[Rfam]
RNA: PyrR binding site
Organism: Mangrovibacillus cuniculi
RNA sequence: UAAGCCUUUAAAACAGUCCCGUGAGGCUGAGAAGGAAACGGAUUAGUAAGAGGGGAUAGUGUAUCUAUUUCUCUUACUCGUGGAACCCUCUUGCCCCAAUUGGUAAGAGGGUUUUCUCGUU
Numbered sequence: 001u002a003a004g005c006c007u008u009u010a011a012a013a014c015a016g017u018c019c020c021g022u023g024a025g026g027c028u029g030a031g032a033a034g035g036a037a038a039c040g041g042a043u044u045a046g047u048a049a050g051a052g053g054g055g056a057u058a059g060u061g062u063a064u065c066u067a068u069u070u071c072u073c074u075u076a077c078u079c080g081u082g083g084a085a086c087c088c089u090c091u092u093g094c095c096c097c098a099a100u101u102g103g104u105a106a107g108a109g110g111g112u113u114u115u116c117u118c119g120u121u
Stems, first nucleotide, its partner, number of pairs: 005035005014029005045078009055069005082115013